MIR812 microRNA precursor family: a 199-nucleotide RNA from Oryza nivara. Its family is annotated with RISC complex and miRNA-mediated post-transcriptional gene silencing in the Gene Ontology. Taxonomically the source falls in Oryza (Eukaryota, Spermatophyta, Liliopsida, Oryzoideae).
RNA sequence: AAUAAACCCUGGUUUCCGUGCUUAACGUUUGACCGUCCGUCUUAUUUAAAAAAAAUAUAAAAAAAUUAAAAAGACAAGUCACGCCUAAAAUAUUAAUCAUGUUUUAUGAUCUAACAACAAUGAAAAUACGAAUUAUAAAAAAUUUUUAUAUAAAACGGACAGUCAAAGUUAGACACGGAAACCCAGGGUUUGCCUUUUU
Numbered sequence: 001a002a003u004a005a006a007c008c009c010u011g012g013u014u015u016c017c018g019u020g021c022u023u024a025a026c027g028u029u030u031g032a033c034c035g036u037c038c039g040u041c042u043u044a045u046u047u048a049a050a051a052a053a054a055a056u057a058u059a060a061a062a063a064a065a066u067u068a069a070a071a072a073g074a075c076a077a078g079u080c081a082c083g084c085c086u087a088a089a090a091u092a093u094u095a096a097u098c099a100u101g102u103u104u105u106a107u108g109a110u111c112u113a114a115c116a117a118c119a120a121u122g123a124a125a126a127u128a129c130g131a132a133u134u135a136u137a138a139a140a141a142a143u144u145u146u147u148a149u150a151u152a153a154a155a156c157g158g159a160c161a162g163u164c165a166a167a168g169u170u171a172g173a174c175a176c177g178g179a180a181a182c183c184c185a186g187g188g189u190u191u192g193c194c195u196u197u198u199u
Stems, first nucleotide, its partner, number of pairs: 022172005028167006035160006042153004